[Rfam]
RNA: c-di-AMP riboswitch aptamer (ydaO/yuaA leader)
RNA sequence: AAAAUUUUGUCACCGAGUUCCCGUUACGGGAAGCGGGGGAACCAGUUUUGGGGUGAAAUGCAAUAAAGCAUGGGGCUGUCACUUCGUCCUAACCCGUCAGCUAACCUCGUAGGUGUAGAAAGUGAGGCAAC
Numbered sequence: 001a002a003a004a005u006u007u008u009g010u011c012a013c014c015g016a017g018u019u020c021c022c023g024u025u026a027c028g029g030g031a032a033g034c035g036g037g038g039g040a041a042c043c044a045g046u047u048u049u050g051g052g053g054u055g056a057a058a059u060g061c062a063a064u065a066a067a068g069c070a071u072g073g074g075g076c077u078g079u080c081a082c083u084u085c086g087u088c089c090u091a092a093c094c095c096g097u098c099a100g101c102u103a104a105c106c107u108c109g110u111a112g113g114u115g116u117a118g119a120a121a122g123u124g125a126g127g128c129a130a131c
Stems, first nucleotide, its partner, number of pairs: 011115004018032005033110006043050002051095003059070003073089004